[Rfam]
RNA: SAH (S-adenosyl-L-homocysteine) riboswitch aptamer
Organism: Lysobacter sp. TY2-98
RNA sequence: CCUGCCGAGGGGCGCUGCAAGUCCGACCGCCGACCGGCGUGUGUUUUCGGAAUCAGGCUCGGCACGGUUUUCCUGUAACGGCGCCCGUUUGAC
Numbered sequence: 001c002c003u004g005c006c007g008a009g010g011g012g013c014g015c016u017g018c019a020a021g022u023c024c025g026a027c028c029g030c031c032g033a034c035c036g037g038c039g040u041g042u043g044u045u046u047u048c049g050g051a052a053u054c055a056g057g058c059u060c061g062g063c064a065c066g067g068u069u070u071u072c073c074u075g076u077a078a079c080g081g082c083g084c085c086c087g088u089u090u091g092a093c
Base pairs, nucleotide, nucleotide: 003064004063005062006061007060008059022051023050024049025048026047